[Rfam]
RNA sequence: GUGUGAGUGUCCGUGUGUGUCCGUGCAGCGCGCGUGGCCGAGGUGUGAGUGUCCGUGUGUGUCCGUGCAGCGCGCGUGGCCGAGGUGUGAGUGUCCGUGUGUGGGGCGUGCGAGGCGGUGAGUGCGCCCGCCCCUGCGCCCUCCCGCCGCCUGCACUUUGAUCUUAUUUGAUCGGGCCGAGACCCCCGCCGCGCCGGCCCGAGAUGAAAAGCUUCCCUCCUGCGAAGCCCUGCUUCCGCGGGGCGCUGUGCAGCGAGGCCCCCCCGGGCGGCGGCCGCGCCGCGGUCCCCGAGGCCCCCGGGCCGGUCCCACGGGGCCCGGCGCUCAGAAGUGAUGAAUUGAUCAGAUAGACGAGGCUCCGGGCUUGGCCCGGGCCGAUGAUUACCGAGGCGAUUCUGAUCUGA
Numbered sequence: 001g002u003g004u005g006a007g008u009g010u011c012c013g014u015g016u017g018u019g020u021c022c023g024u025g026c027a028g029c030g031c032g033c034g035u036g037g038c039c040g041a042g043g044u045g046u047g048a049g050u051g052u053c054c055g056u057g058u059g060u061g062u063c064c065g066u067g068c069a070g071c072g073c074g075c076g077u078g079g080c081c082g083a084g085g086u087g088u089g090a091g092u093g094u095c096c097g098u099g100u101g102u103g104g105g106g107c108g109u110g111c112g113a114g115g116c117g118g119u120g121a122g123u124g125c126g127c128c129c130g131c132c133c134c135u136g137c138g139c140c141c142u143c144c145c146g147c148c149g150c151c152u153g154c155a156c157u158u159u160g161a162u163c164u165u166a167u168u169u170g171a172u173c174g175g176g177c178c179g180a181g182a183c184c185c186c187c188g189c190c191g192c193g194c195c196g197g198c199c200c201g202a203g204a205u206g207a208a209a210a211g212c213u214u215c216c217c218u219c220c221u222g223c224g225a226a227g228c229c230c231u232g233c234u235u236c237c238g239c240g241g242g243g244c245g246c247u248g249u250g251c252a253g254c255g256a257g258g259c260c261c262c263c264c265c266g267g268g269c270g271g272c273g274g275c276c277g278c279g280c281c282g283c284g285g286u287c288c289c290c291g292a293g294g295c296c297c298c299c300g301g302g303c304c305g306g307u308c309c310c311a312c313g314g315g316g317c318c319c320g321g322c323g324c325u326c327a328g329a330a331g332u333g334a335u336g337a338a339u340u341g342a343u344c345a346g347a348u349a350g351a352c353g354a355g356g357c358u359c360c361g362g363g364c365u366u367g368g369c370c371c372g373g374g375c376c377g378a379u380g381a382u383u384a385c386c387g388a389g390g391c392g393a394u395u396c397u398g399a400u401c402u403g404a
Base pairs, nucleotide, nucleotide: 049139050138051137053136054067055066056065057064084088091127092126093125096122098120099119100118102117103116167210168209169208172202173201174200175199177197178196179195181194184193186191236294237293239291240290241289242288243287245286246285247284250283251282253280254279255278257276258275259274260273262271263270302322303321304320305319306318307316308315309314326403327402328401329400336396337395338394339393340392341391355376356375357374358373362371363370
Record summary
This 404-nucleotide RNA sequence from Ochotona princeps belongs to the Rfam family "Small Cajal body-specific RNA 2". By type it is a small Cajal body RNA. On this family, see Tycowski et al., Curr Biol 2004: "Guide RNAs with 5' caps and novel box C/D snoRNA-like domains for modification of snRNAs in metazoa". Rfam links the family to the GO terms RNA processing and nucleolus.